Shown here is a 90-nucleotide RNA from Jeotgalibacillus soli, a member of the family "Glycine riboswitch aptamer". Its family is annotated with glycine biosynthetic process in the Gene Ontology. The pairing is the family consensus, mapped onto this sequence. The source organism's lineage runs through Bacteria, Bacillota, Bacilli, Caryophanales and Jeotgalibacillus.
RNA sequence: AUGAUAACAAGGGGAGAGACCGUUUACGGCGCCGAAGGAGCAAACAUGAUUUCAUGUGAAUCUCUCAGGCAAAAAGACUCUUGUUGGACG
Numbered sequence: 001a002u003g004a005u006a007a008c009a010a011g012g013g014g015a016g017a018g019a020c021c022g023u024u025u026a027c028g029g030c031g032c033c034g035a036a037g038g039a040g041c042a043a044a045c046a047u048g049a050u051u052u053c054a055u056g057u058g059a060a061u062c063u064c065u066c067a068g069g070c071a072a073a074a075a076g077a078c079u080c081u082u083g084u085u086g087g088a089c090g
Base pairs, nucleotide, nucleotide: 006085007084008083009082010081011080012079013078020029021028022027031070032069033068034066035065038064039063040062044057045056